A member of the RNA family "Fluoride riboswitch aptamer (crcB RNA motif)" from Clostridium acetobutylicum, 64 nucleotides long.
Its family is annotated with positive regulation of gene expression and response to fluoride in the Gene Ontology.
[Rfam]
RNA sequence: AAUUUCAUAGGUGAUGAGGUUCGCCCGUAAAUAUCCUGUUUGGAUUGAUGACUUCUGCAUAAUU
Number, nucleotide and partner (000 for none) at each position: 001a000002a000003u000004u000005u000006c000007a000008u000009a000010g025011g024012u023013g022014a000015u000016g055017a054018g053019g052020u051021u050022c013023g012024c011025c010026c000027g000028u000029a000030a000031a000032u000033a045034u044035c043036c042037u000038g000039u000040u000041u000042g036043g035044a034045u033046u000047g000048a000049u000050g021051a020052c019053u018054u017055c016056u000057g000058c000059a000060u000061a000062a000063u000064u000